[Rfam]
This 75-nucleotide sequence from Pseudorhodobacter antarcticus belongs to the Rfam family "Singlet oxygen resistance RNA X". Rfam describes the family as follows. SorX (RSs2461)like SorY is a singlet oxygen induced sRNA that counteracts oxidative stress by targeting mRNA for a transporter in Rhodobacter. The literature on the family includes a 2016 paper in RNA Biol by Peng et al., "Regulation of a polyamine transporter by the conserved 3' UTR-derived sRNA SorX confers resistance to singlet oxygen and organic hydroperoxides in Rhodobacter sphaeroides". The pairing is the family consensus, mapped onto this sequence. It is annotated as a small RNA.

RNA sequence: CCCCUUGUCGCGUCGGGGUUAUGGCGCGCACCUCCCUGUUGGACCUUGGCCGGGCCUUUGUGCCCGGUCUUUUUU
Numbered sequence: 001c002c003c004c005u006u007g008u009c010g011c012g013u014c015g016g017g018g019u020u021a022u023g024g025c026g027c028g029c030a031c032c033u034c035c036c037u038g039u040u041g042g043a044c045c046u047u048g049g050c051c052g053g054g055c056c057u058u059u060g061u062g063c064c065c066g067g068u069c070u071u072u073u074u075u
Stems, first nucleotide, its partner, number of pairs: 007029001009028006048069008